[Rfam]
RNA: MIR821 microRNA precursor family
Organism: Oryza barthii
RNA sequence: GAUUUCAACUAAAUUAGCCAUCAACAACAAAGUUGUAUAACUCACCAAGAUCUAUAACUUUUAUUUUUGUGAUUUCUUCAUCCGACAAAGUGCUAGUAACAUUGUUAACAAAAUUUACAUAUCUGUGUUAUAGUUUAUAAACUAGAUGAGAGAUAUGUGAAUUUUGUAAACAAUAUUACUAUCACUUUGUCGGAUGAAGAAAUGACCAAAAUAAAAGUUAUAGAUCUUGAUGAGUUAUACAAUUUUGUUGUUGAUGACUUUUUCAGUAGAAAUC
Dot-bracket structure: ...............((.(((.((.((..(((((((((((((.(.((((((((.(((((((((((((.((.((((.(((((.((((((((((.((((((.((((((.(((((.((.((((((........(((((....)))))........)))))).)).))))).)))))).)))))).)))))))))).))))).)))).)).))))))))))))).)))))))).).)))))))))))))..)).)).))).))...............